[Rfam]
Nucleotides: 059
Stems, first nucleotide, its partner, number of pairs: 014026005
Number, partner (000 for none) and nucleotide at each position: 001000u002000a003000a004000c005000u006000u007000u008000g009000c010000a011000g012000c013000c014026c015025u016024g017023a018022a019000u020000u021000u022018u023017u024016c025015a026014g027000g028000c029000u030000a031000c032000a033000u034000a035000a036000c037000a038000a039000u040000c041000a042000u043000u044000a045000a046000a047000u048000a049000a050000u051000a052000u053000u054000g055000g056000a057000a058000u059000g
This 59-nucleotide RNA sequence belongs to the Rfam family "S15-Flavobacteria ribosomal protein leader". It is one of the family's seed sequences. The family's RNA type in Rfam is cis-regulatory leader.